[Rfam]
RNA sequence: GCAGUGUGUGUAAACAUCCUACACUCUCAGCUGUGACUUUGUGGUAGCUGGGAGAAGGUUGUUUACGCCUCCUGG
Numbered sequence: 001g002c003a004g005u006g007u008g009u010g011u012a013a014a015c016a017u018c019c020u021a022c023a024c025u026c027u028c029a030g031c032u033g034u035g036a037c038u039u040u041g042u043g044g045u046a047g048c049u050g051g052g053a054g055a056a057g058g059u060u061g062u063u064u065a066c067g068c069c070u071c072c073u074g075g
Stems, first nucleotide, its partner, number of pairs: 002074003006070001008068009018058003024054009

Record summary:
This 75-nucleotide RNA sequence from Ophiophagus hannah belongs to the Rfam family "mir-30 microRNA precursor family". Rfam's curators write: This family consists of the mammalian microRNA (miRNA) precursor mir-30a. Animal miRNAs are transcribed as ~70nt precursors and subsequently processed by the Dicer enzyme to give a ~22nt product. In this case the mature sequence comes from both the 3' (miR-30) and 5' (mir-97-6) arms of the precursor. The extents of the hairpin precursors are not generally known and are estimated based on hairpin prediction. The products are thought to have regulatory roles through complementarity to mRNA. The involvement of Dicer in miRNA processing suggests a relationship with the phenomenon of RNA interference. miRNAs are numbered based on the sequence of the mature RNA. For this family Rfam cites "Identification of novel genes coding for small expressed RNAs" (Lagos-Quintana et al., Science, 2001). The family's consensus secondary structure was predicted with PFOLD.